Shown here is a 145-nucleotide RNA from Turnera subulata, a member of the family "MIR403 microRNA precursor family". For this family Rfam cites "High throughput approaches reveal splicing of primary microRNA transcripts and tissue specific expression of mature microRNAs in Vitis vinifera" (Mica et al., BMC Genomics, 2009). Its family is annotated with RISC complex and miRNA-mediated post-transcriptional gene silencing in the Gene Ontology. A search with the family's covariance model found it, with a score of 78 bits. NCBI's taxonomy places the organism under Eukaryota, Euphyllophyta, Magnoliopsida, eudicotyledons, Turnera.
RNA sequence: GCAUAUUUCAGGUUUGUGCGUGAAUCUGAUAUAAGUAUUCCCAAUCCGUACAUCGACCCUCAAAUGCUAUUGCCUUCUUUGUCUUUUUACUCUUCCACUGGAUGGGCUGCAGUAUUAGAUUCACGCACAAACUCGUAAUCUGUCU
Numbered sequence: 001g002c003a004u005a006u007u008u009c010a011g012g013u014u015u016g017u018g019c020g021u022g023a024a025u026c027u028g029a030u031a032u033a034a035g036u037a038u039u040c041c042c043a044a045u046c047c048g049u050a051c052a053u054c055g056a057c058c059c060u061c062a063a064a065u066g067c068u069a070u071u072g073c074c075u076u077c078u079u080u081g082u083c084u085u086u087u088u089a090c091u092c093u094u095c096c097a098c099u100g101g102a103u104g105g106g107c108u109g110c111a112g113u114a115u116u117a118g119a120u121u122c123a124c125g126c127a128c129a130a131a132c133u134c135g136u137a138a139u140c141u142g143u144c145u
Base pairs, nucleotide, nucleotide: 001143002142003141005139006138007137011133012132013131014130015129016128017127018126019125020124021123022122023121024120025119026118028116029115030114067112068111075102077100